[Rfam]
Rfam assigns this 109-nucleotide RNA from Callorhinchus milii to the family "Small nucleolar RNA SNORD124". A reference for the family is Yang et al. (2006), "snoSeeker: an advanced computational package for screening of guide and orphan snoRNA genes in the human genome", Nucleic Acids Res. NCBI's taxonomy places the organism under Eukaryota, Chordata, Craniata, Chimaeriformes, Callorhinchus. Rfam classes the family as a C/D-box small nucleolar RNA.
RNA sequence: ACAGUGAGAGGAAGGAAUGAUGUGCUAAAAAUUCCCAAGAAAAGGACUCUGAUUGAAUCUGCUUCACUCUGAUUGAACUAUGGUUAUUUCUGACCUUCCUCCAGCGUGG
Numbered sequence: 001a002c003a004g005u006g007a008g009a010g011g012a013a014g015g016a017a018u019g020a021u022g023u024g025c026u027a028a029a030a031a032u033u034c035c036c037a038a039g040a041a042a043a044g045g046a047c048u049c050u051g052a053u054u055g056a057a058u059c060u061g062c063u064u065c066a067c068u069c070u071g072a073u074u075g076a077a078c079u080a081u082g083g084u085u086a087u088u089u090c091u092g093a094c095c096u097u098c099c100u101c102c103a104g105c106g107u108g109g
Stems, first nucleotide, its partner, number of pairs: 009100007